Shown here is a 123-nucleotide sequence from Kingdonia uniflora, a member of the family "Small nucleolar RNA SNORD14".
[Rfam]
RNA sequence: UGUCGAUGAUGACAAAUUUAAGGCUUGUUUCUCGGAGACAUUUGCAGUGGCCGACUAAGAGCUUUUGCCUUUGCCAGGCUUGAGAGCUUAUGCUGCUUUAUUCUUCCUUGGAUGUCUGAGACU
Dot-bracket structure: .(((........................................................((((((...............))))))................................))).
Taxonomically the source falls in Kingdonia (Eukaryota, Viridiplantae, Spermatophyta, Magnoliopsida). Rfam classes the family as a C/D-box small nucleolar RNA. U14 small nucleolar RNA (U14 snoRNA) is required for early cleavages of eukaryotic precursor rRNAs. In yeasts, this molecule possess a stem-loop region (known as the Y-domain) which is essential for function. A similar structure, but with a different consensus sequence, is found in plants, but is absent in vertebrates. On this family, see Samarsky et al., Nucleic Acids Res 1996: "An essential domain in Saccharomyces cerevisiae U14 snoRNA is absent in vertebrates, but conserved in other yeasts".